[Rfam]
mir-998 microRNA precursor family: a 98-nucleotide RNA from Polypedilum vanderplanki. The family has 7 seed sequences and 83 matches in Rfam 15.1. Pairs were carried over by alignment from the consensus structure, which was predicted with RNAalifold.

RNA sequence: AUUAUCAUUCUGUGAGCUGGAUACUUGUGGAUCUGCAUAUUUGAUGGAAAUUUUUGCAUGCUUGUAGCACCAUAAGAUUCAGCUCUUAUGAUGAUAAC
Number, nucleotide and partner (000 for none) at each position: 001a000002u000003u096004a095005u094006c093007a092008u000009u090010c000011u088012g087013u000014g085015a084016g000017c082018u081019g080020g000021a000022u000023a000024c076025u075026u074027g073028u072029g071030g070031a000032u000033c067034u066035g065036c064037a063038u000039a000040u000041u000042u000043g000044a000045u000046g000047g000048a000049a000050a000051u000052u000053u000054u000055u000056g000057c000058a000059u000060g000061c000062u000063u037064g036065u035066a034067g033068c000069a000070c030071c029072a028073u027074a026075a025076g024077a000078u000079u000080c019081a018082g017083c000084u015085c014086u000087u012088a011089u000090g009091a000092u007093g006094a005095u004096a003097a000098c000